[Rfam]
RNA: Small nucleolar RNA SNORA44
RNA sequence: CAGCGUGUUUCCAAGGUCUGUGGCCCAUCAUGGCCAUGGGAUCUCCAACCGCAUGUGAGAGCAGCCUGGAGAGACUUUGAUAGCACAAGUGAACAUAAUUCUUCUCAACUGCCACUCUCCUUGCCUAGAAGA
Numbered sequence: 001c002a003g004c005g006u007g008u009u010u011c012c013a014a015g016g017u018c019u020g021u022g023g024c025c026c027a028u029c030a031u032g033g034c035c036a037u038g039g040g041a042u043c044u045c046c047a048a049c050c051g052c053a054u055g056u057g058a059g060a061g062c063a064g065c066c067u068g069g070a071g072a073g074a075c076u077u078u079g080a081u082a083g084c085a086c087a088a089g090u091g092a093a094c095a096u097a098a099u100u101c102u103u104c105u106c107a108a109c110u111g112c113c114a115c116u117c118u119c120c121u122u123g124c125c126u127a128g129a130a131g132a
Base pairs, nucleotide, nucleotide: 011039012038016035018033019032020031021030022029068125069124071122072121073120083112084111087103088102089101